[Rfam]
RNA: TPP riboswitch aptamer (THI element)
Organism: Taibaiella sp. KBW10
RNA sequence: UAUUGGCUUUAGGGGUAUUCUGAACAGAAUUGAGACAGUCCCUUCGAACCUGAUUCGGUUGAUACCGGCGUAGGGAAAAGCGAUUAAAAACAG
Number, nucleotide and partner (000 for none) at each position: 001u000002a000003u000004u000005g000006g081007c080008u079009u078010u077011a043012g042013g041014g040015g000016u037017a030018u029019u028020c027021u026022g000023a000024a000025c000026a021027g020028a019029a018030u017031u000032g000033a000034g000035a000036c000037a016038g000039u000040c014041c013042c012043u011044u000045c000046g000047a000048a000049c074050c073051u072052g071053a000054u000055u068056c067057g066058g065059u000060u000061g000062a000063u000064a000065c058066c057067g056068g055069c000070g000071u052072a051073g050074g049075g000076a000077a010078a009079a008080g007081c006082g000083a000084u000085u000086a000087a000088a000089a000090a000091c000092a000093g000